Shown here is a 53-nucleotide sequence, a member of the family "Glutamine riboswitch aptamer (glnA leader)".
The literature on the family includes a 2011 paper in RNA Biol by Ames and Breaker, "Bacterial aptamers that selectively bind glutamine".
RNA sequence: GUCGUUCAUCUCAAAUGAGACGGAAGUAGGUAAUAUAACCGAAGGAACGCACU
Numbered sequence: 001g002u003c004g005u006u007c008a009u010c011u012c013a014a015a016u017g018a019g020a021c022g023g024a025a026g027u028a029g030g031u032a033a034u035a036u037a038a039c040c041g042a043a044g045g046a047a048c049g050c051a052c053u
Stems, first nucleotide, its partner, number of pairs: 003049005009020004023050001029040003